[Rfam]
Nucleotides: 139
Base pairs, nucleotide, nucleotide: 004069005068006067008064009063010062011061012060024055025054026053027052028051029050030049035047036046037045081132082131083130084129085128089123091121092120093119095117096116097115098114099113100112101111
Number, partner (000 for none) and nucleotide at each position: 001000a002000c003000u004069g005068g006067a007000a008064g009063c010062u011061g012060c013000a014000a015000a016000a017000c018000c019000a020000a021000c022000c023000a024055u025054g026053u027052a028051g029050a030049c031000a032000a033000a034000g035047g036046a037045g038000a039000a040000a041000a042000u043000g044000c045037c046036u047035u048000u049030g050029u051028u052027u053026g054025c055024a056000g057000a058000a059000g060012g061011c062010a063009g064008c065000g066000g067006u068005c069004c070000u071000a072000c073000a074000u075000g076000a077000a078000u079000a080000u081132g082131g083130a084129g085128g086000u087000c088000u089123c090000u091121g092120u093119c094000u095117g096116a097115c098114u099113u100112a101111g102000a103000a104000u105000a106000g107000c108000u109000g110000g111101c112100u113099g114098a115097g116096u117095c118000u119093g120092a121091u122000c123089g124000u125000u126000c127000a128085c129084c130083u131082c132081c133000a134000u135000a136000c137000a138000a139000c
Shown here is a 139-nucleotide RNA sequence, a member of the family "Small Cajal body specific RNA 3".
From the family's description: scaRNAs are a specific class of small nuclear RNAs which localise to the Cajal bodies and guide the modification of RNA polymerase II transcribed spliceosomal RNAs U1, U2, U4, U5 and U12.
Gene Ontology terms of the family: Cajal body, nucleolus and RNA processing.
Rfam classes the family as a small Cajal body RNA.
On this family, see Darzacq et al., EMBO J 2002: "Cajal body-specific small nuclear RNAs: a novel class of 2'-O-methylation and pseudouridylation guide RNAs".